RNA: tRNA
Organism: Tardiphaga sp.
RNA sequence: GCAGUUGUAGCUCAGUUGGUUAGAGCGCCUGUUUGUGGAGCAGGAGGUCGGUGGUUCGAGACCACCCAACUGUA
Numbered sequence: 001g002c003a004g005u006u007g008u009a010g011c012u013c014a015g016u017u018g019g020u021u022a023g024a025g026c027g028c029c030u031g032u033u034u035g036u037g038g039a040g041c042a043g044g045a046g047g048u049c050g051g052u053g054g055u056u057c058g059a060g061a062c063c064a065c066c067c068a069a070c071u072g073u074a
Stems, first nucleotide, its partner, number of pairs: 001073007010026004028044005050066005